Source information: msiK RNA: a 58-nucleotide sequence from a Microbacteriaceae bacterium. The base pairs follow the family's consensus structure, which is taken from published work. A search with the family's covariance model found it, with a score of 46 bits.
[Rfam]
RNA sequence: UUGCGCCAUCCAUCACGAAGGAUCGUCCGGCACGUACCGCCGGUGAAGGAGAAAAAUC
Dot-bracket structure: ........(((.(((...........(((((.......)))))))).)))........